Description: A member of the RNA family "SAM riboswitch aptamer (S box leader)" from Senegalia massiliensis, 101 nucleotides long. Pairs were carried over by alignment from the consensus structure, which is taken from published work.
RNA sequence: CUCUUAUCUAGAGAGGUGGAGGGACUGGCCCUAUGAAACCCAGCAACCAAUGCAUUAUGCAUAAGGUGCUAAUUCCAGCGGCAUAUGCCGAAAGAUGAGGG
Number, nucleotide and partner (000 for none) at each position: 001c101002u100003c099004u098005u097006a096007u095008c094009u000010a000011g000012a000013g041014a000015g040016g039017u038018g000019g000020a000021g031022g030023g029024a000025c078026u077027g076028g075029c023030c022031c021032u000033a000034u000035g000036a000037a000038a017039c016040c015041c013042a070043g069044c068045a067046a000047c066048c065049a000050a062051u061052g060053c000054a000055u000056u000057a000058u000059g000060c052061a051062u050063a000064a000065g048066g047067u045068g044069c043070u042071a000072a000073u000074u093075c028076c027077a026078g025079c090080g089081g088082c087083a000084u000085a000086u000087g082088c081089c080090g079091a000092a000093a074094g008095a007096u006097g005098a004099g003100g002101g001
The match comes from Rfam's covariance-model search (96 bits).